Shown here is a 128-nucleotide RNA sequence from Anser brachyrhynchus, a member of the family "U11 spliceosomal RNA". The organism belongs to Anser, within Eukaryota. Gene Ontology terms of the family: mRNA 5'-splice site recognition, U11 snRNP and pre-mRNA 5'-splice site binding.

RNA sequence: AAAAAGGGCUUCUGCCGUGCGUGGCACGGGGGGGCUCCGGCCGCCCCCGCGGAAUCGACAUCAAGAGAUUUCGGGAGCACAAUUUUUGCGCGCGGGGCCUGCCGGUAACCGCCCGUUCCGGCGCCCCU
Numbered sequence: 001a002a003a004a005a006g007g008g009c010u011u012c013u014g015c016c017g018u019g020c021g022u023g024g025c026a027c028g029g030g031g032g033g034g035c036u037c038c039g040g041c042c043g044c045c046c047c048c049g050c051g052g053a054a055u056c057g058a059c060a061u062c063a064a065g066a067g068a069u070u071u072c073g074g075g076a077g078c079a080c081a082a083u084u085u086u087u088g089c090g091c092g093c094g095g096g097g098c099c100u101g102c103c104g105g106u107a108a109c110c111g112c113c114c115g116u117u118c119c120g121g122c123g124c125c126c127c128u
Stems, first nucleotide, its partner, number of pairs: 008078005013026005027049006034041002050073007096126002099123001101122005107117003